Shown here is a 254-nucleotide RNA sequence from Streptomyces sp. RB17, a member of the family "Streptomyces sRNA 4677". It is annotated as a small RNA. Pairs were carried over by alignment from the consensus structure. The source organism's lineage runs through Bacteria, Actinomycetes, Kitasatosporales, Streptomycetaceae and Streptomyces. Located in the intergenic region between anti-sigma factor SCO4677 gene and a putative regulatory protein gene SCO4676. scr4677 expression requires the SCO4677 activity and scr4677 sRNA itself seem to affect the levels of the SCO4676-associated transcripts.

[Rfam]
RNA sequence: CGGGCCGGGGCUGCGGGCGGUAAAAGACCAAAGAACCCUGGAAAAAAACCAACCAACCAAACCAAACCCCGCGUAGGUCACUCGCGCGGGUGAAACAGGUCGGUCUGGCUGGCGCGGCGGCGGCUCGGGCGUGCAGUCUCGCCCCGAGGCAAUUGCCUCCGUCACAACUCCACAAGCCCACACAUGCAUCGGCCCCCGCCGGGACUGGCAUCCCAGUGCGAGGGCCUGACCAACGAGGAAGCAAACCCUUCCCU
Numbered sequence: 001c002g003g004g005c006c007g008g009g010g011c012u013g014c015g016g017g018c019g020g021u022a023a024a025a026g027a028c029c030a031a032a033g034a035a036c037c038c039u040g041g042a043a044a045a046a047a048a049c050c051a052a053c054c055a056a057c058c059a060a061a062c063c064a065a066a067c068c069c070c071g072c073g074u075a076g077g078u079c080a081c082u083c084g085c086g087c088g089g090g091u092g093a094a095a096c097a098g099g100u101c102g103g104u105c106u107g108g109c110u111g112g113c114g115c116g117g118c119g120g121c122g123g124c125u126c127g128g129g130c131g132u133g134c135a136g137u138c139u140c141g142c143c144c145c146g147a148g149g150c151a152a153u154u155g156c157c158u159c160c161g162u163c164a165c166a167a168c169u170c171c172a173c174a175a176g177c178c179c180a181c182a183c184a185u186g187c188a189u190c191g192g193c194c195c196c197c198g199c200c201g202g203g204a205c206u207g208g209c210a211u212c213c214c215a216g217u218g219c220g221a222g223g224g225c226c227u228g229a230c231c232a233a234c235g236a237g238g239a240a241g242c243a244a245a246c247c248c249u250u251c252c253c254u
Stems, first nucleotide, its partner, number of pairs: 007234001010231001017072003078093006108163001110161003191226005197220003201214004237252005